Rfam assigns this 111-nucleotide RNA sequence from Virgibacillus salexigens to the family "SAM riboswitch aptamer (S box leader)". The family's consensus secondary structure is taken from published work. From the family's description: The SAM riboswitch is found upstream of a number of genes which code for proteins involved in methionine or cysteine biosynthesis in Gram-positive bacteria. The SAM riboswitch acts at the level of transcription termination control. The predicted structure consists of a complex stem-loop region followed by a single stem loop terminator region. An alternative and mutually exclusive form involves bases in the 3' segment of helix 1 with those in the 5' region of helix 5 to form a structure termed the anti-terminator form.
RNA sequence: UUCUUAUCAAGAGAAGUGGAGGGAAAAGGCCCAAUGAAACUUCGGCAACAGGUUAUUGAUGGCUAACACUGUGCUAAUUCCUACAGACAAUAUGCGUCUGAUAGAUAAGAA
Dot-bracket structure: ((((((((....(((((...(((...[[[)))......)))))((((.((.((((........))))..))))))...(]]].(((((.......)))))..)))))))))
Numbered sequence: 001u002u003c004u005u006a007u008c009a010a011g012a013g014a015a016g017u018g019g020a021g022g023g024a025a026a027a028g029g030c031c032c033a034a035u036g037a038a039a040c041u042u043c044g045g046c047a048a049c050a051g052g053u054u055a056u057u058g059a060u061g062g063c064u065a066a067c068a069c070u071g072u073g074c075u076a077a078u079u080c081c082u083a084c085a086g087a088c089a090a091u092a093u094g095c096g097u098c099u100g101a102u103a104g105a106u107a108a109g110a111a
Stems, first nucleotide, its partner, number of pairs: 001111008013043005021032003027082003044075004049071002052067004079103001084100005